RNA: Selenocysteine insertion sequence 1
RNA sequence: AUCAUAUUCCAUGAAGUUAUGAACUCAAAACUCAGGUCAUGCAGUUCAUGACUGAUGUUUUCAUGAU
Number, nucleotide and partner (000 for none) at each position: 001a067002u066003c065004a064005u063006a000007u000008u000009c000010c000011a000012u000013g000014a000015a000016g052017u051018u050019a049020u048021g047022a046023a045024c044025u043026c000027a000028a000029a000030a037031c036032u000033c000034a000035g000036g031037u030038c000039a000040u000041g000042c000043a025044g024045u023046u022047c021048a020049u019050g018051a017052c016053u000054g000055a000056u000057g000058u000059u000060u000061u000062c000063a005064u004065g003066a002067u001